[Rfam]
RNA sequence: AGCUCUUAAUUUCUCUUAAUUCACGCAUAAAUCUUUUGCCUUUUAUUAACGAUUUCCACAGAGAGGAACAUCAAAGAGCUUGAUGUAGUUUCCUGAGCUUUGCUCUGGCAAAGCU
Numbered sequence: 001a002g003c004u005c006u007u008a009a010u011u012u013c014u015c016u017u018a019a020u021u022c023a024c025g026c027a028u029a030a031a032u033c034u035u036u037u038g039c040c041u042u043u044u045a046u047u048a049a050c051g052a053u054u055u056c057c058a059c060a061g062a063g064a065g066g067a068a069c070a071u072c073a074a075a076g077a078g079c080u081u082g083a084u085g086u087a088g089u090u091u092c093c094u095g096a097g098c099u100u101u102g103c104u105c106u107g108g109c110a111a112a113g114c115u
Base pairs, nucleotide, nucleotide: 003078004077005076006075010068011067012066013065014064015063016062017061029055030054031053032052033051035049036048096115097114098113099112100111101110102109